[Rfam]
RNA: SAM riboswitch aptamer (S box leader)
RNA sequence: UUCUUAUCCAGAGAGGUGGAGGGGGGGCAGGCCCUUAGAAACCUCGGCAACAGGUUUUGAAUCGUAAACACUGUGCCAAAUCCUGCGGGAAAUAUCUAUAGGAACCCGAAAGAUAAGAA
Numbered sequence: 001u002u003c004u005u006a007u008c009c010a011g012a013g014a015g016g017u018g019g020a021g022g023g024g025g026g027g028c029a030g031g032c033c034c035u036u037a038g039a040a041a042c043c044u045c046g047g048c049a050a051c052a053g054g055u056u057u058u059g060a061a062u063c064g065u066a067a068a069c070a071c072u073g074u075g076c077c078a079a080a081u082c083c084u085g086c087g088g089g090a091a092a093u094a095u096c097u098a099u100a101g102g103a104a105c106c107c108g109a110a111a112g113a114u115a116a117g118a119a
Stems, first nucleotide, its partner, number of pairs: 001119008013045005021034003028085004046077004051073002053069001055067002081111001086108004